[Rfam]
RNA sequence: AUGGCACUUUCUCCGGAAUCGCUGUACAUCGUUGAUGCUUUCAGUUUAACCCUUUUCUAGCAAAUGUCUGUGUGGUGAUA
Numbered sequence: 001a002u003g004g005c006a007c008u009u010u011c012u013c014c015g016g017a018a019u020c021g022c023u024g025u026a027c028a029u030c031g032u033u034g035a036u037g038c039u040u041u042c043a044g045u046u047u048a049a050c051c052c053u054u055u056u057c058u059a060g061c062a063a064a065u066g067u068c069u070g071u072g073u074g075g076u077g078a079u080a
Stems, first nucleotide, its partner, number of pairs: 002080002005077002